[Rfam]
Source information
Shown here is a 75-nucleotide RNA from Micromonospora nigra, a member of the family "ASpks TB sRNA". The organism belongs to Micromonospora, within Bacteria.
RNA sequence: CUUGAUCGAGCCCAGCCAGAGCGGAUCGCCCCCGCCGCGCUCCUGCCCGUACGUGGUGAGCAGCGCCUGCGCCUC
Numbered sequence: 001c002u003u004g005a006u007c008g009a010g011c012c013c014a015g016c017c018a019g020a021g022c023g024g025a026u027c028g029c030c031c032c033c034g035c036c037g038c039g040c041u042c043c044u045g046c047c048c049g050u051a052c053g054u055g056g057u058g059a060g061c062a063g064c065g066c067c068u069g070c071g072c073c074u075c
Stems, first nucleotide, its partner, number of pairs: 014026001016024002031071001033069001038065002043060002047056003
A search with the family's covariance model found it, with a score of 74 bits.